[Rfam]
RNA sequence: UAUCUAGCUUGCUCACCCAAGCCACUUGGGUGGAGGCUGGCGGUUUUUUAACCGUCGGCCU
Number, nucleotide and partner (000 for none) at each position: 001u000002a000003u000004c000005u000006a000007g000008c000009u000010u000011g000012c000013u000014c032015a031016c030017c029018c028019a027020a026021g000022c000023c000024a000025c000026u020027u019028g018029g017030g016031u015032g014033g000034a000035g060036g059037c058038u057039g056040g055041c054042g053043g052044u051045u000046u000047u000048u000049u000050a000051a044052c043053c042054g041055u040056c039057g038058g037059c036060c035061u000